[Rfam]
RNA sequence: UCCAUUGCGAGGUGGAAUCUGAAGGAAGUCGGCGGCAAACAUCUGGCCUGACGAACAGAAACUUCAUACAAGGCAUUUGACCGUGGGUAAGGUUGCCAAACAGACCAAAGCCCGAUAGCUAUUCGGAACGGUUGGUGUAAAUGAAGUAGGUAUAAGAUAGAAAGACAAUGCC
Number, nucleotide and partner (000 for none) at each position: 001u016002c015003c014004a013005u012006u011007g000008c000009g000010a000011g006012g005013u004014g003015g002016a001017a000018u000019c000020u000021g000022a000023a000024g000025g000026a000027a000028g172029u000030c170031g169032g000033c000034g000035g000036c164037a000038a000039a000040c000041a158042u157043c156044u155045g000046g151047c150048c149049u148050g147051a000052c000053g000054a000055a000056c000057a000058g000059a000060a000061a000062c146063u145064u144065c143066a142067u141068a000069c000070a000071a000072g000073g138074c137075a136076u000077u134078u000079g133080a132081c131082c130083g129084u128085g113086g112087g111088u110089a000090a000091g106092g105093u104094u103095g000096c000097c000098a000099a000100a000101c000102a000103g094104a093105c092106c091107a000108a000109a000110g088111c087112c086113c085114g000115a000116u000117a000118g000119c000120u000121a000122u000123u000124c000125g000126g000127a000128a084129c083130g082131g081132u080133u079134g077135g000136u075137g074138u073139a000140a000141a067142u066143g065144a064145a063146g062147u050148a049149g048150g047151u046152a000153u000154a000155a044156g043157a042158u041159a000160g000161a000162a000163a000164g036165a000166c000167a000168a000169u031170g030171c000172c028
RNA: Group II catalytic intron D1-D4-3